[Rfam]
RNA sequence: CAACGUAAUACGGCGUUUUAUGCUGAUGAUUAAUACCCAACAGCGUACGGACUAGAACUCCGAUCGGACUUCUUUAAGGAGAAAACAAAAUG
Numbered sequence: 001c002a003a004c005g006u007a008a009u010a011c012g013g014c015g016u017u018u019u020a021u022g023c024u025g026a027u028g029a030u031u032a033a034u035a036c037c038c039a040a041c042a043g044c045g046u047a048c049g050g051a052c053u054a055g056a057a058c059u060c061c062g063a064u065c066g067g068a069c070u071u072c073u074u075u076a077a078g079g080a081g082a083a084a085a086c087a088a089a090a091u092g
Stems, first nucleotide, its partner, number of pairs: 002017005019047007048062004
This 92-nucleotide sequence belongs to the Rfam family "freshwater-2 RNA". The base pairs follow the family's consensus structure, which is taken from published work. It is one of the family's seed sequences. Rfam classes the family as a cis-regulatory element.